Rfam assigns this 74-nucleotide RNA from Novosphingobium colocasiae to the family "terC RNA". It is annotated as a cis-regulatory element. Taxonomically the source falls in Novosphingobium (Bacteria, Pseudomonadota, Alphaproteobacteria, Sphingomonadales).

[Rfam]
RNA sequence: AGGGCGGGCCGGGCCCCUCUGGCGCCAAGCGGUGGAUUAUCAUGAUCCGCCUGGCGUGAUGUCGGACCGCAUCG
Numbered sequence: 001a002g003g004g005c006g007g008g009c010c011g012g013g014c015c016c017c018u019c020u021g022g023c024g025c026c027a028a029g030c031g032g033u034g035g036a037u038u039a040u041c042a043u044g045a046u047c048c049g050c051c052u053g054g055c056g057u058g059a060u061g062u063c064g065g066a067c068c069g070c071a072u073c074g
Stems, first nucleotide, its partner, number of pairs: 006068002009065004022057006029050004